Shown here is a 292-nucleotide RNA sequence from Handroanthus impetiginosus, a member of the family "Plant signal recognition particle RNA". A search with the family's covariance model found it, with a score of 214 bits. Lineage of the source: Eukaryota > Streptophyta > Euphyllophyta > Spermatophyta > Handroanthus.

[Rfam]
RNA sequence: GCCGAGCUUAGUAAUGUGAGCUUGUAACCCAAGUGGGGCCAUUAAUGUGAUUGGACAUUAGGCUUGCCCAACUAGUUGGGCAAAGUGUGGCUAAUUGCUAGCUUGCCCAUUCCAAGCGAGGAGUUGGGCCACGCAAUCUAAGCGAAGGCAUAGGCUUUGUGGCCCCUAAAGAGGGGGGCAUUGCGUCAGGCUGGUUUCACAGAGCAGCGCCUUGCAGUGGAAGGAUAACGAGCUGGUGCCUCCUUAGCUCCACAAAACUAGAUGGGCUAGCCUUAAUUGGACAAUCACAUUU
Numbered sequence: 001g002c003c004g005a006g007c008u009u010a011g012u013a014a015u016g017u018g019a020g021c022u023u024g025u026a027a028c029c030c031a032a033g034u035g036g037g038g039c040c041a042u043u044a045a046u047g048u049g050a051u052u053g054g055a056c057a058u059u060a061g062g063c064u065u066g067c068c069c070a071a072c073u074a075g076u077u078g079g080g081c082a083a084a085g086u087g088u089g090g091c092u093a094a095u096u097g098c099u100a101g102c103u104u105g106c107c108c109a110u111u112c113c114a115a116g117c118g119a120g121g122a123g124u125u126g127g128g129c130c131a132c133g134c135a136a137u138c139u140a141a142g143c144g145a146a147g148g149c150a151u152a153g154g155c156u157u158u159g160u161g162g163c164c165c166c167u168a169a170a171g172a173g174g175g176g177g178g179c180a181u182u183g184c185g186u187c188a189g190g191c192u193g194g195u196u197u198c199a200c201a202g203a204g205c206a207g208c209g210c211c212u213u214g215c216a217g218u219g220g221a222a223g224g225a226u227a228a229c230g231a232g233c234u235g236g237u238g239c240c241u242c243c244u245u246a247g248c249u250c251c252a253c254a255a256a257a258c259u260a261g262a263u264g265g266g267c268u269a270g271c272c273u274u275a276a277u278u279g280g281a282c283a284a285u286c287a288c289a290u291u292u
Stems, first nucleotide, its partner, number of pairs: 001040001003038001004023007028037003044291010056279002058276003061272004066267001068265003072261006078250004083245003087242001089240002092238002098236008107224002110222005116215003126165008135156001137154004142149002166171001183210004191202003